[Rfam]
RNA sequence: UUAAAUUCUCAGGGCGGGGUGUAAGUCCCCACCGGCGGUAUCUGUCUUAUGCCAGCGGCAUAACGGCAGCAGCCCGCGAGCGCCUGCCACACCUUGGCAGGGUCAGCAGAUCCGGUGAGAAGCCGGGGCCGACGGUUAUAGUCCGGAUAGAAGAGAGUGACG
Number, nucleotide and partner (000 for none) at each position: 001u000002u000003a000004a000005a158006u157007u156008c155009u154010c153011a000012g000013g000014g000015c000016g000017g029018g028019g027020u000021g000022u000023a000024a000025g000026u000027c019028c018029c017030c000031a142032c141033c131034g130035g077036c076037g075038g074039u000040a000041u000042c000043u000044g000045u000046c000047u000048u000049a000050u000051g000052c000053c000054a000055g000056c000057g000058g000059c000060a000061u000062a000063a000064c000065g000066g000067c000068a000069g000070c000071a000072g129073c128074c038075c037076g036077c035078g000079a000080g107081c106082g000083c000084c000085u000086g000087c000088c000089a000090c000091a000092c000093c000094u000095u000096g000097g000098c000099a000100g000101g000102g000103u000104c000105a000106g081107c080108a000109g000110a000111u127112c126113c125114g124115g123116u000117g000118a000119g000120a000121a000122g000123c115124c114125g113126g112127g111128g073129c072130c034131g033132a000133c145134g144135g143136u000137u000138a000139u000140a000141g032142u031143c135144c134145g133146g000147a000148u000149a000150g000151a000152a000153g010154a009155g008156a007157g006158u005159g000160a000161c000162g000
The family of this 162-nucleotide RNA sequence from Plesiomonas shigelloides is "FMN riboswitch aptamer (RFN element)". The family's consensus secondary structure is taken from published work. NCBI's taxonomy places the organism under Bacteria, Gammaproteobacteria, Enterobacterales, Plesiomonas, Plesiomonas shigelloides.